[Rfam]
Rfam assigns this 101-nucleotide RNA sequence from Acetobacter senegalensis to the family "Guanidine-I riboswitch aptamer". NCBI's taxonomy places the organism under Bacteria, Pseudomonadati, Pseudomonadota, Alphaproteobacteria, Acetobacter. A search with the family's covariance model found it, with a score of 98 bits.
RNA sequence: GCAAUGGUUCGCUAGGGUUCCGACCUGUUUAUGCAGGUGUCUGGUCCGAGAGCGAACGACCUCUGGUUGAGGUUACACGGCGGGACAAAAGCCCGGGAGAC
Number, nucleotide and partner (000 for none) at each position: 001g000002c000003a000004a000005u000006g000007g057008u056009u055010c054011g053012c052013u000014a000015g047016g046017g000018u000019u000020c044021c043022g041023a038024c037025c036026u035027g034028u033029u000030u000031a000032u000033g028034c027035a026036g025037g024038u023039g000040u000041c022042u000043g021044g020045u000046c016047c015048g000049a000050g000051a000052g012053c011054g010055a009056a008057c007058g074059a073060c072061c071062u070063c069064u000065g000066g000067u000068u000069g063070a062071g061072g060073u059074u058075a000076c096077a000078c099079g000080g000081c000082g094083g093084g092085a000086c000087a000088a000089a000090a000091g000092c084093c083094c082095g000096g076097g000098a000099g078100a000101c000